[Rfam]
This 204-nucleotide RNA sequence belongs to the Rfam family "Cyano-2 RNA". Pairs were carried over by alignment from the consensus structure, which is taken from published work.
RNA sequence: GGCAGCACCGGGAGAGCGACCUGGUGGCUGGCAGAAAUAGCUCCCUUGGCAUCAGCGAUUGCCAGGGGGAGCUUUCUGCGCUCUUCAGAUCUCUGAAAAGAGUUGGUGCAUUUGCAGCAAGGCCUUGUAUCGCGGCGAACUUGUUCAAGUGCGAACCGCAUCGCUCGGGGAGAACAGCGUUCUCCUCGCGGUUCCGCCGCCCCA
Number, nucleotide and partner (000 for none) at each position: 001g000002g000003c030004a029005g028006c027007a025008c024009c023010g022011g021012g020013a000014g000015a000016g000017c000018g000019a000020c012021c011022u010023g009024g008025u007026g000027g006028c005029u004030g003031g079032c078033a077034g076035a075036a074037a073038u000039a000040g000041c000042u069043c068044c067045c066046u065047u064048g063049g062050c061051a060052u000053c000054a000055g000056c000057g000058a000059u000060u051061g050062c049063c048064a047065g046066g045067g044068g043069g042070a000071g000072c000073u037074u036075u035076c034077u033078g032079c031080g000081c000082u000083c000084u000085u000086c000087a000088g000089a000090u000091c000092u000093c000094u000095g000096a000097a000098a000099a000100g000101a000102g000103u000104u000105g000106g000107u000108g000109c000110a000111u000112u000113u000114g000115c000116a000117g000118c000119a000120a000121g000122g000123c000124c000125u000126u000127g000128u000129a000130u000131c000132g000133c000134g000135g000136c000137g000138a000139a000140c000141u000142u000143g000144u000145u000146c000147a000148a000149g197150u196151g195152c000153g193154a000155a192156c191157c190158g189159c188160a000161u000162c000163g000164c000165u000166c000167g187168g186169g185170g184171a183172g182173a181174a180175c000176a000177g000178c000179g000180u174181u173182c172183u171184c170185c169186u168187c167188g159189c158190g157191g156192u155193u153194c000195c151196g150197c149198c000199g000200c000201c000202c000203c000204a000